Source information: Rfam assigns this 87-nucleotide sequence from Alkalihalobacillus alcalophilus to the family "BsrC". The 301 nucleotide sequence from Kouji Nakamura has been trimmed to a highly conserved ~85 nucleotide long core to form this family. NCBI's taxonomy places the organism under Bacteria, Bacilli, Caryophanales, Alkalihalobacillus, Alkalihalobacillus alcalophilus. The base pairs follow the family's consensus structure, which was predicted with CMfinder.
[Rfam]
RNA sequence: UGUACCUAAAACAAUGAAAGCCCUACCUCUCUUUCAUCCUUACGGCUCCUUGGCCGCGCCAGUGUGAAUCAGGAUUGCAUAAAUCAA
Numbered sequence: 001u002g003u004a005c006c007u008a009a010a011a012c013a014a015u016g017a018a019a020g021c022c023c024u025a026c027c028u029c030u031c032u033u034u035c036a037u038c039c040u041u042a043c044g045g046c047u048c049c050u051u052g053g054c055c056g057c058g059c060c061a062g063u064g065u066g067a068a069u070c071a072g073g074a075u076u077g078c079a080u081a082a083a084u085c086a087a
Base pairs, nucleotide, nucleotide: 034067035066036065039062040061041058043056044055045054046053047052